[Rfam]
RNA sequence: ACGCAGCGCGAAGGGCCACCUCAGCACUCCCCCACCCCUGCGCUUCAACCCGCACAUGCUGGGCGAAAGUCCCCGGGCAGCCAGGCAGAAAGUGCCAACCCGAAAGGGUAGGACCCUCGCCCGCCCCUGCCUCGGCAGCGUGGCGGCGGGGCAGCUCGCCAUAACCACAGUUAUGUGGCCGGCCGCGGCGGUCGCCUCUCGGGGCGCCCGCCGUGCGCUAACACAACGGGGCUUACUCUCGCGCUGACG
Numbered sequence: 001a002c003g004c005a006g007c008g009c010g011a012a013g014g015g016c017c018a019c020c021u022c023a024g025c026a027c028u029c030c031c032c033c034a035c036c037c038c039u040g041c042g043c044u045u046c047a048a049c050c051c052g053c054a055c056a057u058g059c060u061g062g063g064c065g066a067a068a069g070u071c072c073c074c075g076g077g078c079a080g081c082c083a084g085g086c087a088g089a090a091a092g093u094g095c096c097a098a099c100c101c102g103a104a105a106g107g108g109u110a111g112g113a114c115c116c117u118c119g120c121c122c123g124c125c126c127c128u129g130c131c132u133c134g135g136c137a138g139c140g141u142g143g144c145g146g147c148g149g150g151g152c153a154g155c156u157c158g159c160c161a162u163a164a165c166c167a168c169a170g171u172u173a174u175g176u177g178g179c180c181g182g183c184c185g186c187g188g189c190g191g192u193c194g195c196c197u198c199u200c201g202g203g204g205c206g207c208c209c210g211c212c213g214u215g216c217g218c219u220a221a222c223a224c225a226a227c228g229g230g231g232c233u234u235a236c237u238c239u240c241g242c243g244c245u246g247a248c249g
Base pairs, nucleotide, nucleotide: 002249003248004246005245006244007243008242009241010240011239014180015179016178017177018176019175021063022061023060024059025058026057067234068233069232071231072230073229074228084096085095086094087093098109099108100107101106111152117149118148119147120146121145124142126140127138128137129136130135182218183217184215185214186213187212188211189210190209191208
RNA: RNase MRP